[Rfam]
RNA sequence: UUUGCAAGUUCAAGAUCAUAGCAGAAGUGCUCAUGGCAUGGCCUGCCAGAUUCCACUUAAUCUGUGAAUUCUGCU
Numbered sequence: 001u002u003u004g005c006a007a008g009u010u011c012a013a014g015a016u017c018a019u020a021g022c023a024g025a026a027g028u029g030c031u032c033a034u035g036g037c038a039u040g041g042c043c044u045g046c047c048a049g050a051u052u053c054c055a056c057u058u059a060a061u062c063u064g065u066g067a068a069u070u071c072u073g074c075u
Stems, first nucleotide, its partner, number of pairs: 014043001016041002020075007027039003047064006
RNA: Mammalian CPEB3 ribozyme